[Rfam]
RNA sequence: AAAAAAGCAGGGACCUGUUGCCUGUGUGAACGGGCCUCUCGUAAAUGUCAGGGAUAUCAAGUUUCAUUGUUAUUGGGUGAACCUCUGUUUUUUUUUUUUUUUGUGACUGAAGGUUCAGUAAAUGAUGGAAUAUUU
Numbered sequence: 001a002a003a004a005a006a007g008c009a010g011g012g013a014c015c016u017g018u019u020g021c022c023u024g025u026g027u028g029a030a031c032g033g034g035c036c037u038c039u040c041g042u043a044a045a046u047g048u049c050a051g052g053g054a055u056a057u058c059a060a061g062u063u064u065c066a067u068u069g070u071u072a073u074u075g076g077g078u079g080a081a082c083c084u085c086u087g088u089u090u091u092u093u094u095u096u097u098u099u100u101u102u103g104u105g106a107c108u109g110a111a112g113g114u115u116c117a118g119u120a121a122a123u124g125a126u127g128g129a130a131u132a133u134u135u
Stems, first nucleotide, its partner, number of pairs: 005048001007046001011037002014034004063129009078117007

A member of the RNA family "Small nucleolar RNA snoR74" from Castanea mollissima, 135 nucleotides long.
The match comes from Rfam's covariance-model search (116 bits).
Rfam links the family to the GO terms RNA processing and nucleolus.
A reference for the family is Marker et al. (2002), "Experimental RNomics: identification of 140 candidates for small non-messenger RNAs in the plant Arabidopsis thaliana", Curr Biol.
Rfam classes the family as an H/ACA-box small nucleolar RNA.